Rfam assigns this 93-nucleotide RNA from Bellilinea caldifistulae to the family "Selenocysteine transfer RNA". For this family Rfam cites "Eukaryotic selenocysteine tRNA has the 9/4 secondary structure" (Mizutani and Goto, FEBS Lett, 2000). Rfam 15.1 lists 4,211 matches to the family in 3,344 species.

[Rfam]
RNA sequence: GGGAGUGGUCGGGUCCCGGUGGGCUCCCCGGUCUUCAAAACCGGUGGCGGGCCGCGUUGCGGGCCGCGGUGGGUUCGACUCCCAUCCAUUCCC
Numbered sequence: 001g002g003g004a005g006u007g008g009u010c011g012g013g014u015c016c017c018g019g020u021g022g023g024c025u026c027c028c029c030g031g032u033c034u035u036c037a038a039a040a041c042c043g044g045u046g047g048c049g050g051g052c053c054g055c056g057u058u059g060c061g062g063g064c065c066g067c068g069g070u071g072g073g074u075u076c077g078a079c080u081c082c083c084a085u086c087c088a089u090u091c092c093c
Base pairs, nucleotide, nucleotide: 001093002092003091004090005089006088007087008086011026012025013024014023015022016021028044029043030042031041032040047067048066049065050064070084071083072082073081